RNA sequence: GAAAUCCCACCGAAGAGCAUCCGUAUGGAUGCCUUCUCGAAAGAGAUAGGUGGGGUUUCCUUU
Number, nucleotide and partner (000 for none) at each position: 001g059002a058003a057004a056005u055006c054007c053008c052009a051010c050011c049012g000013a000014a000015g000016a000017g032018c031019a030020u029021c028022c027023g000024u000025a000026u000027g022028g021029a020030u019031g018032c017033c000034u000035u046036c045037u044038c043039g000040a000041a000042a000043g038044a037045g036046a035047u000048a000049g011050g010051u009052g008053g007054g006055g005056u004057u003058u002059c001060c000061u000062u000063u000